RNA: L31-Actinobacteria ribosomal protein leader
Nucleotides: 052
Base pairs, nucleotide, nucleotide: 003052004051005050007049008048009047010046015043016042017041018040023039
Number, partner (000 for none) and nucleotide at each position: 001000u002000c003052g004051g005050u006000u007049c008048c009047g010046g011000u012000u013000c014000a015043c016042g017041c018040c019000g020000c021000a022000g023039c024000c025000u026000c027000c028000c029000g030000c031000u032000u033000u034000g035000g036000g037000a038000a039023g040018g041017g042016c043015g044000a045000c046010c047009c048008g049007g050005g051004c052003c